[Rfam]
RNA sequence: GUCAAUAACCCCCACCAAAUCUAACGAUUUGGAGGGGGUUUGCGAGAAAUCGUAAGCCCUGAUUGACUACCCUAAGUGUUUCGAGCACUACGUUACUCAAGAAUGUAAGAAUAGGCACCGGCGGGCGUGAAUCCGAACCUGCCGCACUGCGGUGUGUGAUUAAAAGCUCUGAGGGUAAGGAGCGGUGUUGCACACGAAAACCUUGAGAUAACAUUGGGUACGGAUACCUGAU
Numbered sequence: 001g002u003c004a005a006u007a008a009c010c011c012c013c014a015c016c017a018a019a020u021c022u023a024a025c026g027a028u029u030u031g032g033a034g035g036g037g038g039u040u041u042g043c044g045a046g047a048a049a050u051c052g053u054a055a056g057c058c059c060u061g062a063u064u065g066a067c068u069a070c071c072c073u074a075a076g077u078g079u080u081u082c083g084a085g086c087a088c089u090a091c092g093u094u095a096c097u098c099a100a101g102a103a104u105g106u107a108a109g110a111a112u113a114g115g116c117a118c119c120g121g122c123g124g125g126c127g128u129g130a131a132u133c134c135g136a137a138c139c140u141g142c143c144g145c146a147c148u149g150c151g152g153u154g155u156g157u158g159a160u161u162a163a164a165a166g167c168u169c170u171g172a173g174g175g176u177a178a179g180g181a182g183c184g185g186u187g188u189u190g191c192a193c194a195c196g197a198a199a200a201c202c203u204u205g206a207g208a209u210a211a212c213a214u215u216g217g218g219u220a221c222g223g224a225u226a227c228c229u230g231a232u
Base pairs, nucleotide, nucleotide: 001067002066003065004064005063006062008060010038011037012035013034015032016031017030018029019028020027021026039056040055041054042053043052044051045050070218071217072216074214075089076088077087078086079085092212093211094210095209097206098205099204100203101202115150116149119144120143121142122141123140124139125138127228130225132223134222135221152195153194154193155192156191157190158189159188160187164186166183167182168181169180170179
Rfam assigns this 232-nucleotide sequence from Dysosmobacter segnis to the family "HNH endonuclease-associated RNA and ORF (HEARO) RNA". The match comes from Rfam's covariance-model search (106 bits). The literature on the family includes a 2009 paper in Nature by Weinberg et al., "Exceptional structured noncoding RNAs revealed by bacterial metagenome analysis".